[Rfam]
RNA: Guanidine-I riboswitch aptamer
Organism: Brochothrix campestris
RNA sequence: CGAAAACAUUUCUAGGGUUCCGUAACUUCAUCGUUAGUCUGGUCCGAGAGAAAUGCGCAACGGUUGCCGUUGUGACACGGAAGGACAAAAGCCUGGGAGAA
Numbered sequence: 001c002g003a004a005a006a007c008a009u010u011u012c013u014a015g016g017g018u019u020c021c022g023u024a025a026c027u028u029c030a031u032c033g034u035u036a037g038u039c040u041g042g043u044c045c046g047a048g049a050g051a052a053a054u055g056c057g058c059a060a061c062g063g064u065u066g067c068c069g070u071u072g073u074g075a076c077a078c079g080g081a082a083g084g085a086c087a088a089a090a091g092c093c094u095g096g097g098a099g100a101a
Stems, first nucleotide, its partner, number of pairs: 007055006015045002020042002022039001023036004056074008076096001078099001082094003
Dot-bracket structure: ......((((((..((...(((((((......))))..).)).))....))))))((((((((...)))))))).(.[...(((.......))).)..]..